[Rfam]
RNA: purD RNA motif
Organism: Helicobacter sp. CLO-3
RNA sequence: GUAGUGGUUUUUGUGUGUCGGUAUUUUCGCUUGCAGCCAGAGAAUGGUGAGAAUCUGCCGCCUAAUAAAAUCCUCCAAACCUUGUUUGUAGCUUAUCCAUUGGGCUGCACAAUUUUAAGUAGCGGUUAUCUGGGU
Numbered sequence: 001g002u003a004g005u006g007g008u009u010u011u012u013g014u015g016u017g018u019c020g021g022u023a024u025u026u027u028c029g030c031u032u033g034c035a036g037c038c039a040g041a042g043a044a045u046g047g048u049g050a051g052a053a054u055c056u057g058c059c060g061c062c063u064a065a066u067a068a069a070a071u072c073c074u075c076c077a078a079a080c081c082u083u084g085u086u087u088g089u090a091g092c093u094u095a096u097c098c099a100u101u102g103g104g105c106u107g108c109a110c111a112a113u114u115u116u117a118a119g120u121a122g123c124g125g126u127u128a129u130c131u132g133g134g135u
Base pairs, nucleotide, nucleotide: 003074004073006072007071008070009069010068019060020059021058022057023056026053027052028051036048037047038046039045088108089107090106091105092104093103094102